The record is a 110-nucleotide RNA sequence from Priestia filamentosa, which matches "SAM riboswitch aptamer (S box leader)" in Rfam.

RNA sequence: CUCUUAUCAAGAGUGGCGGAGGGACUGGCCCGAUGAAGCCCGGCAACCAUCAAGUAAUAUACUUGAACGGUGCCAAUUCCUGUAGAACAAAUUGUUCUUACAGAUGAGAG
Numbered sequence: 001c002u003c004u005u006a007u008c009a010a011g012a013g014u015g016g017c018g019g020a021g022g023g024a025c026u027g028g029c030c031c032g033a034u035g036a037a038g039c040c041c042g043g044c045a046a047c048c049a050u051c052a053a054g055u056a057a058u059a060u061a062c063u064u065g066a067a068c069g070g071u072g073c074c075a076a077u078u079c080c081u082g083u084a085g086a087a088c089a090a091a092u093u094g095u096u097c098u099u100a101c102a103g104a105u106g107a108g109a110g
Base pairs, nucleotide, nucleotide: 001110002109003108004107005106006105007104008103013041015040016039017038021031022030023029025082027080028079042074043073044072045071047070048069050066051065052064053063078102084098085097086096087095088094

A search with the family's covariance model found it, with a score of 96 bits.
Lineage of the source: Bacteria > Bacillati > Bacilli > Caryophanales > Priestia.